[Rfam]
RNA sequence: AAAUCAGAUUGCAAUUAUAGUGCUUCAUUUUCUGGAGCACUGCUAUUACCCUGCUGAAGGAAUACCCAUGUUAAUCAUUUUUGAUUUUGCCUUUAUGAGGGUAAAAUAAUGACAGAAUGACACGGAUAAUU
Numbered sequence: 001a002a003a004u005c006a007g008a009u010u011g012c013a014a015u016u017a018u019a020g021u022g023c024u025u026c027a028u029u030u031u032c033u034g035g036a037g038c039a040c041u042g043c044u045a046u047u048a049c050c051c052u053g054c055u056g057a058a059g060g061a062a063u064a065c066c067c068a069u070g071u072u073a074a075u076c077a078u079u080u081u082u083g084a085u086u087u088u089g090c091c092u093u094u095a096u097g098a099g100g101g102u103a104a105a106a107u108a109a110u111g112a113c114a115g116a117a118u119g120a121c122a123c124g125g126a127u128a129a130u131u
Stems, first nucleotide, its partner, number of pairs: 003055001005053003018042009066125002069122005075116002082109001084107010